Description:
The record is a 197-nucleotide sequence from Brassica cretica, which matches "U2 spliceosomal RNA" in Rfam. Rfam 15.1 lists 71,512 matches to the family in 2,642 species. Taxonomically the source falls in Brassica (Eukaryota, Magnoliopsida, Brassicales, Brassicaceae). Clan: U2 clan. Rfam classes the family as a spliceosomal small nuclear RNA.
[Rfam]
RNA sequence: AUACCUUUCUCGGCCUUUUGGCUAAGAUCAAGUGUAGUAUCUAUUCUUAUCAAUUUAAUAUCUGAUAUAUGGGUCAUCUGCCCAUACGAUGUUAACUAUAUUUUUUUAGGGGGAAAAAGCCCAUCAAAAUAGCUUGCUAUCUGGGCUUUCGGAAAUUGCACUUGCGUUGCACUACUGCACGGCCUGGCUCAACCCAU
Numbered sequence: 001a002u003a004c005c006u007u008u009c010u011c012g013g014c015c016u017u018u019u020g021g022c023u024a025a026g027a028u029c030a031a032g033u034g035u036a037g038u039a040u041c042u043a044u045u046c047u048u049a050u051c052a053a054u055u056u057a058a059u060a061u062c063u064g065a066u067a068u069a070u071g072g073g074u075c076a077u078c079u080g081c082c083c084a085u086a087c088g089a090u091g092u093u094a095a096c097u098a099u100a101u102u103u104u105u106u107u108a109g110g111g112g113g114a115a116a117a118a119g120c121c122c123a124u125c126a127a128a129a130u131a132g133c134u135u136g137c138u139a140u141c142u143g144g145g146c147u148u149u150c151g152g153a154a155a156u157u158g159c160a161c162u163u164g165c166g167u168u169g170c171a172c173u174a175c176u177g178c179a180c181g182g183c184c185u186g187g188c189u190c191a192a193c194c195c196a197u
Stems, first nucleotide, its partner, number of pairs: 008027003012023004048067005069085006113150004119146004129140004154189001156187003161181001163179003